[Rfam]
Description
This 64-nucleotide RNA sequence from Pararge aegeria belongs to the Rfam family "mir-2 microRNA precursor family". Gene Ontology terms of the family: miRNA-mediated post-transcriptional gene silencing and RISC complex.

RNA sequence: CCUAUCGUAAAAAUAGUUGUGCAAUGGUCGUCUUUCAUAUCACAGCCAUUUUUGACGAGUUGGG
Numbered sequence: 001c002c003u004a005u006c007g008u009a010a011a012a013a014u015a016g017u018u019g020u021g022c023a024a025u026g027g028u029c030g031u032c033u034u035u036c037a038u039a040u041c042a043c044a045g046c047c048a049u050u051u052u053u054g055a056c057g058a059g060u061u062g063g064g
Stems, first nucleotide, its partner, number of pairs: 005058004010053004014048001016046006025039002